[Rfam]
RNA sequence: AUAUUCAAAGGGCAAAUACAGGGAAACUUGUAGACGCAAAGUUCCAGAGCUACGGUAAAUACUAUGCUGGCUGAACCGCAAUA
Numbered sequence: 001a002u003a004u005u006c007a008a009a010g011g012g013c014a015a016a017u018a019c020a021g022g023g024a025a026a027c028u029u030g031u032a033g034a035c036g037c038a039a040a041g042u043u044c045c046a047g048a049g050c051u052a053c054g055g056u057a058a059a060u061a062c063u064a065u066g067c068u069g070g071c072u073g074a075a076c077c078g079c080a081a082u083a
Stems, first nucleotide, its partner, number of pairs: 012037002017032006041076003045073003048068003055062002
The record is an 83-nucleotide RNA from Candidatus Xianfuyuplasma coldseepsis, which matches "c-di-GMP-I riboswitch aptamer" in Rfam. Lineage of the source: Bacteria > Bacillati > Mollicutes > Candidatus Izemoplasmataceae > Candidatus Xianfuyuplasma. Its family is annotated with cyclic-di-GMP binding in the Gene Ontology.